[Rfam]
RNA sequence: CUUGAAAAAGGCAAACCCAUCGAAAGUUGGGGACGCAAAGCUAUGGGUCUAACGUGUGAAAAUCACUACGACUGCCAAGUUACCGGGG
Number, nucleotide and partner (000 for none) at each position: 001c088002u000003u085004g084005a000006a000007a000008a000009a000010g000011g036012c035013a000014a000015a000016c031017c030018c029019a028020u000021c026022g000023a000024a000025a000026g021027u000028u019029g018030g017031g016032g000033a000034c074035g012036c011037a000038a000039a081040g080041c079042u078043a000044u077045g076046g075047g072048u071049c070050u000051a000052a000053c000054g000055u000056g000057u000058g000059a000060a000061a000062a000063u000064c000065a000066c000067u000068a000069c000070g049071a048072c047073u000074g034075c046076c045077a044078a042079g041080u040081u039082a000083c000084c004085g003086g000087g000088g001